[Rfam]
RNA sequence: GUGUGGAAGAGGAUGAAAAGAGGGCCUAAGAGAAAUAGGCAUGGGAACAUGGAGGAAGGCCUAGUAGGUGAAAUAUUCUUUGAGAGCCUUCCUGAUGCCUCCCAUGCCUAUUGUUCUUAGGUGCUAUUUCCUCUUCCUUUCAGCU
Numbered sequence: 001g002u003g004u005g006g007a008a009g010a011g012g013a014u015g016a017a018a019a020g021a022g023g024g025c026c027u028a029a030g031a032g033a034a035a036u037a038g039g040c041a042u043g044g045g046a047a048c049a050u051g052g053a054g055g056a057a058g059g060c061c062u063a064g065u066a067g068g069u070g071a072a073a074u075a076u077u078c079u080u081u082g083a084g085a086g087c088c089u090u091c092c093u094g095a096u097g098c099c100u101c102c103c104a105u106g107c108c109u110a111u112u113g114u115u116c117u118u119a120g121g122u123g124c125u126a127u128u129u130c131c132u133c134u135u136c137c138u139u140u141c142a143g144c145u
Stems, first nucleotide, its partner, number of pairs: 009136005015130003021125002025121008034112001036110011048097003052093001054092007
RNA: MIR2118 microRNA precursor family
Organism: Eragrostis curvula